[Rfam]
RNA sequence: UUUGUCCUUGUCUUUGGGGAGCAAAGUAUUCAAUGAUCGUUUAGUGAGAGUACUGUUGCUGAAACCCAUAACAAAAUAUUUUACCGCAUCCGUAAAUCCGUAAAAUUUACGAGAUGCAAUUUUUGGAUAG
Numbered sequence: 001u002u003u004g005u006c007c008u009u010g011u012c013u014u015u016g017g018g019g020a021g022c023a024a025a026g027u028a029u030u031c032a033a034u035g036a037u038c039g040u041u042u043a044g045u046g047a048g049a050g051u052a053c054u055g056u057u058g059c060u061g062a063a064a065c066c067c068a069u070a071a072c073a074a075a076a077u078a079u080u081u082u083a084c085c086g087c088a089u090c091c092g093u094a095a096a097u098c099c100g101u102a103a104a105a106u107u108u109a110c111g112a113g114a115u116g117c118a119a120u121u122u123u124u125g126g127a128u129a130g
Stems, first nucleotide, its partner, number of pairs: 005019004021059004025054007038044001086117005091111007

This 130-nucleotide RNA sequence from Trachymyrmex cornetzi belongs to the Rfam family "U4atac minor spliceosomal RNA". Pairs were carried over by alignment from the consensus structure, which is taken from published work. It is annotated as a spliceosomal small nuclear RNA. It scores 91 bits against the family's covariance model. The family is grouped with related families in Rfam's "U4 clan". U4atac is an essential component of the minor U12-type spliceosome complex which is required for removal of the rarer class of eukaryotic introns (AT-AC, U12-type).